RNA sequence: UUGCUUAAGGGACGAAAGUAUCCCGGAGAUGCAAUCCAUCUGUUUCACUUUGUCAGCCUCUUUGUGCUAAUACAGUUGCUGAUCAUUCAAAGGUGGAACAUUU
Numbered sequence: 001u002u003g004c005u006u007a008a009g010g011g012a013c014g015a016a017a018g019u020a021u022c023c024c025g026g027a028g029a030u031g032c033a034a035u036c037c038a039u040c041u042g043u044u045u046c047a048c049u050u051u052g053u054c055a056g057c058c059u060c061u062u063u064g065u066g067c068u069a070a071u072a073c074a075g076u077u078g079c080u081g082a083u084c085a086u087u088c089a090a091a092g093g094u095g096g097a098a099c100a101u102u103u
Stems, first nucleotide, its partner, number of pairs: 035097006052083006

A member of the RNA family "Small nucleolar RNA snoR99" from Kalanchoe fedtschenkoi, 103 nucleotides long. It is annotated as an H/ACA-box small nucleolar RNA. The match comes from Rfam's covariance-model search (67 bits). The organism belongs to Kalanchoe, within Eukaryota. The literature on the family includes a 2002 paper in Curr Biol by Marker et al., "Experimental RNomics: identification of 140 candidates for small non-messenger RNAs in the plant Arabidopsis thaliana".